[Rfam]
RNA sequence: GUCAGGAUAGCUCAGUUGGUAGAGCAGAGGACUGAAAAUCAUCGUGUCACCAGUUCAAAUCUGGUUCUUGGCA
Numbered sequence: 001g002u003c004a005g006g007a008u009a010g011c012u013c014a015g016u017u018g019g020u021a022g023a024g025c026a027g028a029g030g031a032c033u034g035a036a037a038a039u040c041a042u043c044g045u046g047u048c049a050c051c052a053g054u055u056c057a058a059a060u061c062u063g064g065u066u067c068u069u070g071g072c073a
Stems, first nucleotide, its partner, number of pairs: 001072007010025004027043002030040002049065005